[Rfam]
RNA sequence: UCUCCAACAAUAUCCUGGUGCUGAGUGAUGACUCAGGCGACUCCAGCAUCAGUGAUUUUGUUGAAGA
Numbered sequence: 001u002c003u004c005c006a007a008c009a010a011u012a013u014c015c016u017g018g019u020g021c022u023g024a025g026u027g028a029u030g031a032c033u034c035a036g037g038c039g040a041c042u043c044c045a046g047c048a049u050c051a052g053u054g055a056u057u058u059u060g061u062u063g064a065a066g067a
Stems, first nucleotide, its partner, number of pairs: 006062005012056003015052009